[Rfam]
RNA sequence: AAUUCAUCAUGAGUAGCGGAGGGACUGGCCCGGUGAAACUACGACAACCUUUCCAAUGGAAAACGGUGCCAAAUCCAGCGGGUAUUCUGCUCGAAAGAUGAUAU
Numbered sequence: 001a002a003u004u005c006a007u008c009a010u011g012a013g014u015a016g017c018g019g020a021g022g023g024a025c026u027g028g029c030c031c032g033g034u035g036a037a038a039c040u041a042c043g044a045c046a047a048c049c050u051u052u053c054c055a056a057u058g059g060a061a062a063a064c065g066g067u068g069c070c071a072a073a074u075c076c077a078g079c080g081g082g083u084a085u086u087c088u089g090c091u092c093g094a095a096a097g098a099u100g101a102u103a104u
Base pairs, nucleotide, nucleotide: 001104004101005100006099007098008097013042014041015040016039021031022030023029025078026077027076028075043070045068046067048066049065050062051061052060053059074096079093080092081091082090083089084088

Shown here is a 104-nucleotide RNA sequence from Dialister invisus, a member of the family "SAM riboswitch aptamer (S box leader)". For this family Rfam cites "The S box regulon: a new global transcription termination control system for methionine and cysteine biosynthesis genes in gram-positive bacteria" (Grundy and Henkin, Mol Microbiol, 1998). The family's consensus secondary structure is taken from published work.